RNA sequence: AAUCAAGAGUCCCGAUCAUGCGGCCCAGGCCGAUCGGGCGGCAACCCUCAAAACCAUAGUGGGGUGCCCCUGGUGACGAUUCGACACUCGUGCGGCAAAGGACUGCGCGGUGUAAGUAUGGCGC
Numbered sequence: 001a002a003u004c005a006a007g008a009g010u011c012c013c014g015a016u017c018a019u020g021c022g023g024c025c026c027a028g029g030c031c032g033a034u035c036g037g038g039c040g041g042c043a044a045c046c047c048u049c050a051a052a053a054c055c056a057u058a059g060u061g062g063g064g065u066g067c068c069c070c071u072g073g074u075g076a077c078g079a080u081u082c083g084a085c086a087c088u089c090g091u092g093c094g095g096c097a098a099a100g101g102a103c104u105g106c107g108c109g110g111u112g113u114a115a116g117u118a119u120g121g122c123g124c
Base pairs, nucleotide, nucleotide: 001081002080003079004078009039011038012037013036014035015034016033022031023030040068041067042066045064046063047062049059084113085112086111087110088109090108091107092106093105094104
The family of this 124-nucleotide RNA from Arthrobacter glacialis is "SAM (S-adenosyl methionine) riboswitch aptamer". Clan: SAM clan. The match comes from Rfam's covariance-model search (70 bits). The base pairs follow the family's consensus structure, which is taken from published work. Its family is annotated with regulation of gene expression and S-adenosylmethionine metabolic process in the Gene Ontology. Rfam 15.1 lists 2,360 matches to the family in 1,305 species.